[Rfam]
RNA sequence: UAACUCGUCAAGGGGCUGUGAAAUGUUGACAUUACCAAAUUCAUAUCACAGCCAUUUUGAUGAGUUCUG
Numbered sequence: 001u002a003a004c005u006c007g008u009c010a011a012g013g014g015g016c017u018g019u020g021a022a023a024u025g026u027u028g029a030c031a032u033u034a035c036c037a038a039a040u041u042c043a044u045a046u047c048a049c050a051g052c053c054a055u056u057u058u059g060a061u062g063a064g065u066u067c068u069g
Stems, first nucleotide, its partner, number of pairs: 005063009014053008024045003

A member of the RNA family "mir-2 microRNA precursor family" from Drosophila busckii, 69 nucleotides long. It scores 60 bits against the family's covariance model. The source organism's lineage runs through Eukaryota, Dicondylia, Neoptera, Endopterygota and Dorsilopha. For this family Rfam cites "microRNAs: tiny regulators with great potential" (Ambros, Cell, 2001). Gene Ontology terms of the family: miRNA-mediated post-transcriptional gene silencing and RISC complex.